This 67-nucleotide RNA sequence from Solibacillus silvestris belongs to the Rfam family "Bacillaceae-1 RNA". The organism belongs to Solibacillus silvestris, within Bacteria. Pairs were carried over by alignment from the consensus structure, which is taken from published work. Rfam classes the family as a small RNA.
[Rfam]
RNA sequence: GACUUAGGAACAAAAGCUAAAAGCGCCACGUCCUGUGGCAACGCUUUUGUGACCAACAUCGUGUUGG
Numbered sequence: 001g002a003c004u005u006a007g008g009a010a011c012a013a014a015a016g017c018u019a020a021a022a023g024c025g026c027c028a029c030g031u032c033c034u035g036u037g038g039c040a041a042c043g044c045u046u047u048u049g050u051g052a053c054c055a056a057c058a059u060c061g062u063g064u065u066g067g
Stems, first nucleotide, its partner, number of pairs: 011049007025039005053067005

It scores 74 bits against the family's covariance model.